[Rfam]
RNA: mir-4680 microRNA precursor family
Organism: Vicugna pacos
RNA sequence: UAUGCGAACUCUUGCAGUCUUAGAUGUUAUACAAAAAUAUGUAUCUGAAUUGUAAGAGUUGUUAGCAC
Numbered sequence: 001u002a003u004g005c006g007a008a009c010u011c012u013u014g015c016a017g018u019c020u021u022a023g024a025u026g027u028u029a030u031a032c033a034a035a036a037a038u039a040u041g042u043a044u045c046u047g048a049a050u051u052g053u054a055a056g057a058g059u060u061g062u063u064a065g066c067a068c
Stems, first nucleotide, its partner, number of pairs: 004063001007060012020048008029040003